About this RNA: Alphaproteobacterial ar14: a 122-nucleotide sequence from Aureimonas sp. Leaf460. Rfam classes the family as a small RNA. A search with the family's covariance model found it, with a score of 64 bits. Smr14C2 was renamed NfeR1 (Nodule Formation Efficiency RNA) highly expressed in salt stress and during the symbiotic interaction on legume roots. The literature on the family includes a 2012 paper in RNA Biol by del Val et al., "A survey of sRNA families in alpha-proteobacteria". The source organism's lineage runs through Bacteria, Pseudomonadota, Alphaproteobacteria, Aurantimonadaceae and Aureimonas.
RNA sequence: AAGCUUCGCUCCGGCCGAUCUCCUCCCCGAGGCCGAAGCGCAGACGUUCGACGGCAUCCUCCUCCCAGCCGUAGGACUUCAAGACACGACGCCCGCCGGUCCUCCCCCGGCGGGCGUCGUCG
Numbered sequence: 001a002a003g004c005u006u007c008g009c010u011c012c013g014g015c016c017g018a019u020c021u022c023c024u025c026c027c028c029g030a031g032g033c034c035g036a037a038g039c040g041c042a043g044a045c046g047u048u049c050g051a052c053g054g055c056a057u058c059c060u061c062c063u064c065c066c067a068g069c070c071g072u073a074g075g076a077c078u079u080c081a082a083g084a085c086a087c088g089a090c091g092c093c094c095g096c097c098g099g100u101c102c103u104c105c106c107c108c109g110g111c112g113g114g115c116g117u118c119g120u121c122g
Base pairs, nucleotide, nucleotide: 007040008039009038012035013034014033015032016031046077047076048075049074051072052071053070054069055068089117090116091115092114093113094112095111096110097109098108099107